This 71-nucleotide sequence from Enterobacillus tribolii belongs to the Rfam family "PyrD leader". The source organism's lineage runs through Bacteria, Pseudomonadati, Pseudomonadota, Gammaproteobacteria and Enterobacillus. Its family is annotated with regulation of gene expression in the Gene Ontology. A reference for the family is Sorensen (1994), "Conformational heterogeneity in the Salmonella typhimurium pyrC and pyrD leader mRNAs produced in vivo", Nucleic Acids Res.
[Rfam]
RNA sequence: AUUCCCUUCAACGGGCAAAUCACUGAUAAUACGCCCCCGGUUUGCACCGGGACUCAGGAGAUAACAUGUUU
Numbered sequence: 001a002u003u004c005c006c007u008u009c010a011a012c013g014g015g016c017a018a019a020u021c022a023c024u025g026a027u028a029a030u031a032c033g034c035c036c037c038c039g040g041u042u043u044g045c046a047c048c049g050g051g052a053c054u055c056a057g058g059a060g061a062u063a064a065c066a067u068g069u070u071u
Base pairs, nucleotide, nucleotide: 036051037050038049039048040047041046